[Rfam]
RNA: Archaeal large subunit ribosomal RNA, nucleotides 2603 to 2851
RNA sequence: AGGUGUCUGAUGGAAGGGGCCCUUUAGUACGAGAGGAACGAGGGCUCGGGGCCACUAGUUUACCAGUUGUCUGGCAAGGCAAUGCUGGGUAGCCACGCCCUGAUGGAUAAGAGCUGAAAGCAUCUAAGCUCGAAGCCGCCCCAGAGACGAGACACCUCAGAACGCUCGUAAAAGACGAGUUUGAUAGACUGCGGAUGUAAGUACGAAGCUUCGGCGACGUAUUCAGUCCAGCAGCACUAACUGUUCGAG
Numbered sequence: 001a002g003g004u005g006u007c008u009g010a011u012g013g014a015a016g017g018g019g020c021c022c023u024u025u026a027g028u029a030c031g032a033g034a035g036g037a038a039c040g041a042g043g044g045c046u047c048g049g050g051g052c053c054a055c056u057a058g059u060u061u062a063c064c065a066g067u068u069g070u071c072u073g074g075c076a077a078g079g080c081a082a083u084g085c086u087g088g089g090u091a092g093c094c095a096c097g098c099c100c101u102g103a104u105g106g107a108u109a110a111g112a113g114c115u116g117a118a119a120g121c122a123u124c125u126a127a128g129c130u131c132g133a134a135g136c137c138g139c140c141c142c143a144g145a146g147a148c149g150a151g152a153c154a155c156c157u158c159a160g161a162a163c164g165c166u167c168g169u170a171a172a173a174g175a176c177g178a179g180u181u182u183g184a185u186a187g188a189c190u191g192c193g194g195a196u197g198u199a200a201g202u203a204c205g206a207a208g209c210u211u212c213g214g215c216g217a218c219g220u221a222u223u224c225a226g227u228c229c230a231g232c233a234g235c236a237c238u239a240a241c242u243g244u245u246c247g248a249g
Stems, first nucleotide, its partner, number of pairs: 001157008011143003017047008048101005056095001058093001063088005068081005104138003111131005160246004164180005185239003189234004193229003201222005208215001